[Rfam]
RNA sequence: GGCGCCCCUCGUGCGGCGUCAUCUUGUGAACCUCCCCAGGGCCGGAAGGCAGCAAGGAUAAACAAGCUCUGUCGGGUGCGCGAGGGGCCCUUCG
Numbered sequence: 001g002g003c004g005c006c007c008c009u010c011g012u013g014c015g016g017c018g019u020c021a022u023c024u025u026g027u028g029a030a031c032c033u034c035c036c037c038a039g040g041g042c043c044g045g046a047a048g049g050c051a052g053c054a055a056g057g058a059u060a061a062a063c064a065a066g067c068u069c070u071g072u073c074g075g076g077u078g079c080g081c082g083a084g085g086g087g088c089c090c091u092u093c094g
Base pairs, nucleotide, nucleotide: 004088005087006086007085008084009083010082011081012080013079014076017074018073020071021070023066024065025064026063027062033058034057035056041050042049043048